[Rfam]
Nucleotides: 066
Stems, first nucleotide, its partner, number of pairs: 012048006025039005053065004
Number, partner (000 for none) and nucleotide at each position: 001000c002000a003000c004000a005000u006000a007000a008000g009000u010000g011000c012048a013047c014046u015045g016044g017043c018000u019000a020000a021000a022000g023000g024000c025039g026038u027037a028036a029035c030000a031000u032000c033000c034000u035029g036028u037027u038026a039025c040000a041000a042000c043017g044016c045015c046014a047013g048012u049000a050000c051000u052000a053065g054064c055063a056062c057000g058000u059000c060000c061000u062056g063055u064054g065053c066000g